[Rfam]
RNA sequence: CAAUCGACCCCGUGUUGCUGCCUGACCCCCGACCUGGCAGCAGCGCGGGGUCGCUCG
Numbered sequence: 001c002a003a004u005c006g007a008c009c010c011c012g013u014g015u016u017g018c019u020g021c022c023u024g025a026c027c028c029c030c031g032a033c034c035u036g037g038c039a040g041c042a043g044c045g046c047g048g049g050g051u052c053g054c055u056c057g
Stems, first nucleotide, its partner, number of pairs: 003055001005053001007051016